RNA sequence: GGUAUUCCUUAUCUGUCUAAUGGUUUGUUUGGAGCCUGUCUUCCUGCACUCUGUACCAAAGCGCACGAAGACAGGCUCAUCAGUUUGUUGCCGCUUAAGUACUUAAC
Numbered sequence: 001g002g003u004a005u006u007c008c009u010u011a012u013c014u015g016u017c018u019a020a021u022g023g024u025u026u027g028u029u030u031g032g033a034g035c036c037u038g039u040c041u042u043c044c045u046g047c048a049c050u051c052u053g054u055a056c057c058a059a060a061g062c063g064c065a066c067g068a069a070g071a072c073a074g075g076c077u078c079a080u081c082a083g084u085u086u087g088u089u090g091c092c093g094c095u096u097a098a099g100u101a102c103u104u105a106a107c
Stems, first nucleotide, its partner, number of pairs: 001092004022081002032078009043067001045065003049061002052058002

Background
The family of this 107-nucleotide RNA from Serratia odorifera is "tp2". The family's consensus secondary structure was predicted with RNAalifold. A reference for the family is Hershberg et al. (2003), "A survey of small RNA-encoding genes in Escherichia coli", Nucleic Acids Res. Taxonomically the source falls in Serratia odorifera (Bacteria, Gammaproteobacteria, Enterobacterales, Yersiniaceae). It scores 90 bits against the family's covariance model.